The record is a 105-nucleotide sequence from Clostridium beijerinckii, which matches "Purine riboswitch aptamer" in Rfam. From the family's description: Riboswitches are metabolite binding domains within certain messenger RNAs that serve as precision sensors for their corresponding targets. Gene Ontology term of the family: purine nucleobase biosynthetic process. Lineage of the source: Bacteria > Bacillota > Eubacteriales > Clostridium > Clostridium beijerinckii.

[Rfam]
RNA sequence: AAAAAGUUAAUAAUAUUCACUUAUAUAAAUCUGAUAAUAAGGGUCGGAUGUUUCUACCAAGCUACCGUAAAUUGCUAUAGGACUAUAAGUGUCUACUUAAAAAUU
Numbered sequence: 001a002a003a004a005a006g007u008u009a010a011u012a013a014u015a016u017u018c019a020c021u022u023a024u025a026u027a028a029a030u031c032u033g034a035u036a037a038u039a040a041g042g043g044u045c046g047g048a049u050g051u052u053u054c055u056a057c058c059a060a061g062c063u064a065c066c067g068u069a070a071a072u073u074g075c076u077a078u079a080g081g082a083c084u085a086u087a088a089g090u091g092u093c094u095a096c097u098u099a100a101a102a103a104u105u
Stems, first nucleotide, its partner, number of pairs: 018091008029049007058081001060076003064072001